Rfam assigns this 143-nucleotide sequence from Phyllostomus discolor to the family "Small nucleolar RNA SNORD97". The family has 20 seed sequences and 639 matches in Rfam 15.1. Lineage of the source: Eukaryota > Tetrapoda > Boreoeutheria > Phyllostomidae > Phyllostomus. The match comes from Rfam's covariance-model search (156 bits). The literature on the family includes a 2003 paper in Nucleic Acids Res by Vitali et al., "Identification of 13 novel human modification guide RNAs". It is annotated as a C/D-box small nucleolar RNA.
RNA sequence: UUGCCCGAUGAUUAUAAAAAGAUGCGUUAAGAGGACUUAAUGCUGGAGUUCUUCACCUUCUCUUUCUCUUUUUUUCUGUACUACUUUUUCUCUCUUUGUAUAUCCAGCGUCCUGUGAGCGACGAUUAUGAGAUAUGAGGGCAA
Numbered sequence: 001u002u003g004c005c006c007g008a009u010g011a012u013u014a015u016a017a018a019a020a021g022a023u024g025c026g027u028u029a030a031g032a033g034g035a036c037u038u039a040a041u042g043c044u045g046g047a048g049u050u051c052u053u054c055a056c057c058u059u060c061u062c063u064u065u066c067u068c069u070u071u072u073u074u075u076c077u078g079u080a081c082u083a084c085u086u087u088u089u090c091u092c093u094c095u096u097u098g099u100a101u102a103u104c105c106a107g108c109g110u111c112c113u114g115u116g117a118g119c120g121a122c123g124a125u126u127a128u129g130a131g132a133u134a135u136g137a138g139g140g141c142a143a
Stems, first nucleotide, its partner, number of pairs: 001143006032052007